[Rfam]
RNA sequence: CCGUGCUAGAUGGGGAGCUAGCGGUACCCUGUAACCUGCAACCCGCUACAGCAGGAUCGAUCGCUUUUUUGAGGGCUCACAGACUGUUAGCUUUAUCAAUGUAAGGGGUGUUGAAGGCUGGAUCUCAUGCAAUAAGAGACGCUGCGAACCUGGUCAGAUGCGGAAGCAAGCAGCCAUAAGCAUUUGUCCUUAUGUGCCGUGAGCAAGUCUGGCCUGAGCUUACUGCAUUGGUAAACUAAUGGAAACGGGAACAAAAAAAAGUGCACGG
Dot-bracket structure: ((((((..(((((((.(((...))).))))....(((((...........)))))))).....(((((((..(...((.....(((((((...((.((((((..(((((.....(((((((((((((((((.((((....(.(((.....((((....(((....)))....))))...))).)....))))))...))))))...)))))))))..)))..)))))))).))..))))))).....))..)..))))))).))))))
Numbered sequence: 001c002c003g004u005g006c007u008a009g010a011u012g013g014g015g016a017g018c019u020a021g022c023g024g025u026a027c028c029c030u031g032u033a034a035c036c037u038g039c040a041a042c043c044c045g046c047u048a049c050a051g052c053a054g055g056a057u058c059g060a061u062c063g064c065u066u067u068u069u070u071g072a073g074g075g076c077u078c079a080c081a082g083a084c085u086g087u088u089a090g091c092u093u094u095a096u097c098a099a100u101g102u103a104a105g106g107g108g109u110g111u112u113g114a115a116g117g118c119u120g121g122a123u124c125u126c127a128u129g130c131a132a133u134a135a136g137a138g139a140c141g142c143u144g145c146g147a148a149c150c151u152g153g154u155c156a157g158a159u160g161c162g163g164a165a166g167c168a169a170g171c172a173g174c175c176a177u178a179a180g181c182a183u184u185u186g187u188c189c190u191u192a193u194g195u196g197c198c199g200u201g202a203g204c205a206a207g208u209c210u211g212g213c214c215u216g217a218g219c220u221u222a223c224u225g226c227a228u229u230g231g232u233a234a235a236c237u238a239a240u241g242g243a244a245a246c247g248g249g250a251a252c253a254a255a256a257a258a259a260a261g262u263g264c265a266c267g268g
Stems, first nucleotide, its partner, number of pairs: 001268006009058003012030004017025003035055005064261007073252001077249002084242007094233002097230006105224002107220003115215009124203006130194002133192004141184001143182003151176004159168003